[Rfam]
RNA sequence: AUCAGGCAAGAUGUUGGCAUAGCUGAGUCCGAUCGUGAAUCAGCUGUGUCACAUGAUGCCAUGUG
Number, nucleotide and partner (000 for none) at each position: 001a000002u000003c000004a000005g060006g059007c058008a000009a000010g000011a054012u053013g052014u051015u000016g050017g049018c048019a000020u000021a000022g044023c043024u042025g041026a040027g000028u000029c000030c000031g000032a000033u000034c000035g000036u000037g000038a000039a000040u026041c025042a024043g023044c022045u000046g000047u000048g018049u017050c016051a014052c013053a012054u011055g000056a000057u000058g007059c006060c005061a000062u000063g000064u000065g000